Nucleotides: 145
Stems, first nucleotide, its partner, number of pairs: 001065004006061004014055003020049003024043002027040003086139004100134001102132001106130002113124001
Number, partner (000 for none) and nucleotide at each position: 001065u002064a003063u004062c005000a006061c007060c008059u009058g010000a011000c012000a013000a014055u015054g016053g017000g018000c019000a020049a021048g022047g023000a024043g025042a026000c027040a028039c029038c030000u031000g032000a033000u034000u035000g036000g037000u038029g039028g040027u041000u042025u043024u044000g045000c046000u047022c048021u049020u050000a051000u052000a053016u054015c055014a056000g057000u058009c059008a060007g061006g062004g063003g064002u065001g066000a067000a068000g069000c070000a071000g072000a073000c074000a075000u076000a077000c078000a079000g080000c081000a082000c083000u084000u085000a086139g087138u088137u089136u090000a091000u092000c093000c094000u095000a096000g097000c098000u099000u100134g101000a102132u103000a104000c105000c106130u107129g108000u109000g110000u111000c112000a113124g114000u115000g116000g117000c118000c119000a120000g121000a122000g123000c124113u125000a126000u127000u128000u129107c130106a131000u132102g133000c134100c135000a136089g137088g138087g139086c140000a141000c142000a143000u144000u145000u

Notes: Small nucleolar RNA SNORA48: a 145-nucleotide RNA from Cnephaeus nilssonii. NCBI's taxonomy places the organism under Eukaryota, Teleostomi, Euteleostomi, Eutheria, Cnephaeus. A reference for the family is Ofengand and Bakin (1997), "Mapping to nucleotide resolution of pseudouridine residues in large subunit ribosomal RNAs from representative eukaryotes, prokaryotes, archaebacteria, mitochondria and chloroplasts", J Mol Biol. Rfam classes the family as an H/ACA-box small nucleolar RNA. The family's consensus secondary structure was predicted with RNAalifold. Rfam's curators write: The snoRNA ACA 48 has been identified to guide pseudouridylation of the residue U3797 in the 28S rRNA subunit. The match comes from Rfam's covariance-model search (59 bits). Its family is annotated with nucleolus and RNA processing in the Gene Ontology.